The family of this 301-nucleotide part of an RNA from candidate division MSBL1 archaeon SCGC-AAA259A05 is "Archaeal large subunit ribosomal RNA". Taxonomically the source falls in candidate division MSBL1 (Archaea, Methanobacteriati, Methanobacteriota). A search with the family's covariance model found it, with a score of 2766 bits. Pairs were carried over by alignment from the consensus structure, which is taken from published work.
[Rfam]
RNA sequence: GGAUGCCUGAGGGUAAGGUAGCUUCAGUACGAGAGGAACGAGCUGCCGGCGCCUCUAGUGUACCGGUUGUCCGAAGGGGCAGUGCCGGGUAGCCACGCGCCGGUCGAUAAGGGCUGAAAGCAUCUAAGCCUGAAGCGAUUCCCGAAAAUAGGCAUCCAAUCUUGGCCAAAAUUCCGGGACUGGUGACAGUCUCGGAGCGCCAGGACAAAGGCAGGGGCUAGAAGACCCCGUUGAUGGACCGGGGGUGUAAGCGCGAAGCUUCGGCGACGCGUUCAGCCCACCGGCACCAAUAGCCUGAGGU
Numbered sequence: 001g002g003a004u005g006c007c008u009g010a011g012g013g014u015a016a017g018g019u020a021g022c023u024u025c026a027g028u029a030c031g032a033g034a035g036g037a038a039c040g041a042g043c044u045g046c047c048g049g050c051g052c053c054u055c056u057a058g059u060g061u062a063c064c065g066g067u068u069g070u071c072c073g074a075a076g077g078g079g080c081a082g083u084g085c086c087g088g089g090u091a092g093c094c095a096c097g098c099g100c101c102g103g104u105c106g107a108u109a110a111g112g113g114c115u116g117a118a119a120g121c122a123u124c125u126a127a128g129c130c131u132g133a134a135g136c137g138a139u140u141c142c143c144g145a146a147a148a149u150a151g152g153c154a155u156c157c158a159a160u161c162u163u164g165g166c167c168a169a170a171a172u173u174c175c176g177g178g179a180c181u182g183g184u185g186a187c188a189g190u191c192u193c194g195g196a197g198c199g200c201c202a203g204g205a206c207a208a209a210g211g212c213a214g215g216g217g218c219u220a221g222a223a224g225a226c227c228c229c230g231u232u233g234a235u236g237g238a239c240c241g242g243g244g245g246u247g248u249a250a251g252c253g254c255g256a257a258g259c260u261u262c263g264g265c266g267a268c269g270c271g272u273u274c275a276g277c278c279c280a281c282c283g284g285c286a287c288c289a290a291u292a293g294c295c296u297g298a299g300g301u
Stems, first nucleotide, its partner, number of pairs: 001157008011143003017047008048101005056095001058093001063088005068081005104138003111131005209296004214229004235289003239284004243279003251272005258265001